[Rfam]
RNA sequence: GGAAUUUAAUUCGCUUCGAUUCAAGAAUGAGAUACGAAGCAAGAAUAGAAAGCGCUUAUGUGACC
Numbered sequence: 001g002g003a004a005u006u007u008a009a010u011u012c013g014c015u016u017c018g019a020u021u022c023a024a025g026a027a028u029g030a031g032a033u034a035c036g037a038a039g040c041a042a043g044a045a046u047a048g049a050a051a052g053c054g055c056u057u058a059u060g061u062g063a064c065c
Stems, first nucleotide, its partner, number of pairs: 001065002004061002007058003012054004017048001019046004